Rfam assigns this 129-nucleotide RNA from Falcunculus frontatus to the family "U11 spliceosomal RNA". A search with the family's covariance model found it, with a score of 107 bits. NCBI's taxonomy places the organism under Eukaryota, Deuterostomia, Gnathostomata, Corvoidea, Falcunculus. Its Rfam clan is "U1 clan". Rfam classes the family as a spliceosomal small nuclear RNA. Pairs were carried over by alignment from the consensus structure, which is taken from published work.

RNA sequence: AAAAAGGGCUUCUGCCGUGCGUGGCACGGGGGGGCCACGGGCCGCCCUCGCGGAAUCGACAUCAAGAGAUUUCGGAAGCACAAUUUUUGUAAGGGAGGGCUGCCGGUAACCGUCAGUUCCGGCACCCCG
Numbered sequence: 001a002a003a004a005a006g007g008g009c010u011u012c013u014g015c016c017g018u019g020c021g022u023g024g025c026a027c028g029g030g031g032g033g034g035c036c037a038c039g040g041g042c043c044g045c046c047c048u049c050g051c052g053g054a055a056u057c058g059a060c061a062u063c064a065a066g067a068g069a070u071u072u073c074g075g076a077a078g079c080a081c082a083a084u085u086u087u088u089g090u091a092a093g094g095g096a097g098g099g100c101u102g103c104c105g106g107u108a109a110c111c112g113u114c115a116g117u118u119c120c121g122g123c124a125c126c127c128c129g
Stems, first nucleotide, its partner, number of pairs: 008079005013026005027050006034042003051074007097127003102123005108118003